[Rfam]
RNA sequence: GCGUGGGUCGGUCCGCCGCGCUCUGGAAACCGGUGGGCCGGGGGAGGCCGCCGUCUCACAUCCCCGCAGACGGCGGUCGUGGCCCGGGAGGCGACCAGCGUCUCCCGGGUCACA
Numbered sequence: 001g002c003g004u005g006g007g008u009c010g011g012u013c014c015g016c017c018g019c020g021c022u023c024u025g026g027a028a029a030c031c032g033g034u035g036g037g038c039c040g041g042g043g044g045a046g047g048c049c050g051c052c053g054u055c056u057c058a059c060a061u062c063c064c065c066g067c068a069g070a071c072g073g074c075g076g077u078c079g080u081g082g083c084c085c086g087g088g089a090g091g092c093g094a095c096c097a098g099c100g101u102c103u104c105c106c107g108g109g110u111c112a113c114a
Base pairs, nucleotide, nucleotide: 001113006080007078009040010039011038012037013036014035015034016033017032018031048076049075050074051073052072053071054070055069056068059066081111082110083109084108085107086106087105088104089103090102091101092100093099
Shown here is a 114-nucleotide RNA from Streptomyces lonarensis, a member of the family "Streptomyces RNA 4115". The family's RNA type in Rfam is small RNA. From the family's description: Identified by deep sequencing of transcriptome at the end of exponential growth phase. Sequencing size consistent with notrthern blot size. Streptomyces specific. The literature on the family includes a 2011 paper in RNA Biol by Vockenhuber et al., "Deep sequencing-based identification of small non-coding RNAs in Streptomyces coelicolor".